[Rfam]
RNA sequence: UGGCUGGCGUAGUCUAGUGGAUACUUCGUUUAAAACUAAGAGGGUGUAGAAUAGGUGGGAGCUAACGCGAUCUUGAAAUACCACCACCACUUAAUAUUGUACCACUGACGCAGUCCAGCUUUUUU
Numbered sequence: 001u002g003g004c005u006g007g008c009g010u011a012g013u014c015u016a017g018u019g020g021a022u023a024c025u026u027c028g029u030u031u032a033a034a035a036c037u038a039a040g041a042g043g044g045u046g047u048a049g050a051a052u053a054g055g056u057g058g059g060a061g062c063u064a065a066c067g068c069g070a071u072c073u074u075g076a077a078a079u080a081c082c083a084c085c086a087c088c089a090c091u092u093a094a095u096a097u098u099g100u101a102c103c104a105c106u107g108a109c110g111c112a113g114u115c116c117a118g119c120u121u122u123u124u125u
Stems, first nucleotide, its partner, number of pairs: 002120006012109003017105004025077004
RNA: Vault RNA